[Rfam]
The family of this 358-nucleotide part of an RNA from Thalassotalea algicola is "Bacterial large subunit ribosomal RNA". The match comes from Rfam's covariance-model search (2830 bits).
RNA sequence: UGAGAGAACUCGGGUGAAGGAACUAGGCAAAAUAGUACCGUAACUUCGGGAGAAGGUACGCUGGCUCUUGUGAAGGACUUGCUCCGUAAGCAUAGGUCAGUCGAAGUAACCAGGUGGCUGGAACUGUUUAUUAAAAACACAGCACUGUGCAAAAUCGAAAGAUGACGUAUACGGUGUGACGCCUGCCCGGUGCCGGAAGGUUAAUUGAUUGGGUUAGCUCUGCGAAGCUCAUGAUCGAAGCCCCGGUAAACGGCGGCCGUAACUAUAACGGUCCUAAGGUAGCGAAAUUCCUUGUCGGGUAAGUUCCGACCUGCACGAAUGGCGUAAUCAUGGCCACACUGUCUCCACCCGAGACUCA
Numbered sequence: 001u002g003a004g005a006g007a008a009c010u011c012g013g014g015u016g017a018a019g020g021a022a023c024u025a026g027g028c029a030a031a032a033u034a035g036u037a038c039c040g041u042a043a044c045u046u047c048g049g050g051a052g053a054a055g056g057u058a059c060g061c062u063g064g065c066u067c068u069u070g071u072g073a074a075g076g077a078c079u080u081g082c083u084c085c086g087u088a089a090g091c092a093u094a095g096g097u098c099a100g101u102c103g104a105a106g107u108a109a110c111c112a113g114g115u116g117g118c119u120g121g122a123a124c125u126g127u128u129u130a131u132u133a134a135a136a137a138c139a140c141a142g143c144a145c146u147g148u149g150c151a152a153a154a155u156c157g158a159a160a161g162a163u164g165a166c167g168u169a170u171a172c173g174g175u176g177u178g179a180c181g182c183c184u185g186c187c188c189g190g191u192g193c194c195g196g197a198a199g200g201u202u203a204a205u206u207g208a209u210u211g212g213g214u215u216a217g218c219u220c221u222g223c224g225a226a227g228c229u230c231a232u233g234a235u236c237g238a239a240g241c242c243c244c245g246g247u248a249a250a251c252g253g254c255g256g257c258c259g260u261a262a263c264u265a266u267a268a269c270g271g272u273c274c275u276a277a278g279g280u281a282g283c284g285a286a287a288u289u290c291c292u293u294g295u296c297g298g299g300u301a302a303g304u305u306c307c308g309a310c311c312u313g314c315a316c317g318a319a320u321g322g323c324g325u326a327a328u329c330a331u332g333g334c335c336a337c338a339c340u341g342u343c344u345c346c347a348c349c350c351g352a353g354a355c356u357c358a
Base pairs, nucleotide, nucleotide: 001358002357003356004355009353010352011351012350013349014348015347016346018344019343020342035059036058037057038056039055044049060101061100062099063098064097065096080092081091082090083089102106114337115336116335117334118333119332120331121329122328125139126138127137142177143176144175145174146173147172148171149170150167154163155162156161180324181323182322183321185254186253187252190251191250192247193246194245195244196243199242200241201240210231211230212229213228214227217223218222255273256272257271258270259269260268274278284311294310295309296308297307298306299305
The family's consensus secondary structure is taken from published work.